RNA sequence: AACCCCCCACGUGGCGGCAUCUUGUUGAACUCCCCCAGGGCCGGAAGGCAGCAAGGGCAGACGAGCUCUGUCGGGUGCGUGGGGGGCCUUU
Numbered sequence: 001a002a003c004c005c006c007c008c009a010c011g012u013g014g015c016g017g018c019a020u021c022u023u024g025u026u027g028a029a030c031u032c033c034c035c036c037a038g039g040g041c042c043g044g045a046a047g048g049c050a051g052c053a054a055g056g057g058c059a060g061a062c063g064a065g066c067u068c069u070g071u072c073g074g075g076u077g078c079g080u081g082g083g084g085g086g087c088c089u090u091u
Base pairs, nucleotide, nucleotide: 001090002089005086006083007082008081009080010079011078012075015073016072017071018070019069021065022064023063024062025061026060032057033056034055040049041048042047
RNA: Bacterial small signal recognition particle RNA
Organism: Nocardioides sp. CF8